[Rfam]
RNA sequence: GCCCUUUGCAGAAGCUUGCAGAACCCUUAUAUCUCGUUUGUCGGCUUGACCGACUAUGGAAAUAAACGGCCGUUGAAAUAAGCCAUUCGGACCCGGGGGCGGUACCCGGCGCCUCCACCACGAACCGCUGGAAACAGCGGCUGGUGCUGGGGGCGAAAUAGGAUCGACGAGGGUGUAAAGAGCGGACUUUUUCCCGGCAUUGUACCACCGUUAUCGGGCUAAACUUGUAGUUGCAAACGACAACUAUGCGGAAGCACGUCUCGCCGCUUAAUGCGGUGCGAUAGCUUCAAAUCAAGCCCUAGGGGUUCGCACUUCUAGGCGGGGUUCGGAGGUACCUGGCAACAGAAACCUCCACU
Numbered sequence: 001g002c003c004c005u006u007u008g009c010a011g012a013a014g015c016u017u018g019c020a021g022a023a024c025c026c027u028u029a030u031a032u033c034u035c036g037u038u039u040g041u042c043g044g045c046u047u048g049a050c051c052g053a054c055u056a057u058g059g060a061a062a063u064a065a066a067c068g069g070c071c072g073u074u075g076a077a078a079u080a081a082g083c084c085a086u087u088c089g090g091a092c093c094c095g096g097g098g099g100c101g102g103u104a105c106c107c108g109g110c111g112c113c114u115c116c117a118c119c120a121c122g123a124a125c126c127g128c129u130g131g132a133a134a135c136a137g138c139g140g141c142u143g144g145u146g147c148u149g150g151g152g153g154c155g156a157a158a159u160a161g162g163a164u165c166g167a168c169g170a171g172g173g174u175g176u177a178a179a180g181a182g183c184g185g186a187c188u189u190u191u192u193c194c195c196g197g198c199a200u201u202g203u204a205c206c207a208c209c210g211u212u213a214u215c216g217g218g219c220u221a222a223a224c225u226u227g228u229a230g231u232u233g234c235a236a237a238c239g240a241c242a243a244c245u246a247u248g249c250g251g252a253a254g255c256a257c258g259u260c261u262c263g264c265c266g267c268u269u270a271a272u273g274c275g276g277u278g279c280g281a282u283a284g285c286u287u288c289a290a291a292u293c294a295a296g297c298c299c300u301a302g303g304g305g306u307u308c309g310c311a312c313u314u315c316u317a318g319g320c321g322g323g324g325u326u327c328g329g330a331g332g333u334a335c336c337u338g339g340c341a342a343c344a345g346a347a348a349c350c351u352c353c354a355c356u
Base pairs, nucleotide, nucleotide: 040054041053042052043051044050058194059193060192061191062190068187070185071184072183073182074181083173084172087170088169089168093109094108095107096106097105110155111154112153113152114151115150116149195210196209197208200221202219205217206216322337323336324335325334328353329352330351331350332349333348
Rfam assigns this 356-nucleotide RNA from Tianweitania sediminis to the family "Alphaproteobacteria transfer-messenger RNA". On this family, see Mao et al., RNA Biol 2010: "Variations on the tmRNA gene". It is annotated as a non-coding RNA gene. The base pairs follow the family's consensus structure, which is taken from published work. From the family's description: Bacterial tmRNA, also known as 10Sa RNA or SsrA, is named for its dual tRNA and mRNA-like properties. Its role is to liberate the mRNA from a stalled ribosome. To accomplish this part of the tmRNA is used as a reading frame that ends in a translation stop signal. The broken mRNA is replaced in the ribosome by the tmRNA and translation of the tmRNA leads to addition of a proteolysis tag to the incomplete protein enabling recognition by a protease. A search with the family's covariance model found it, with a score of 308 bits.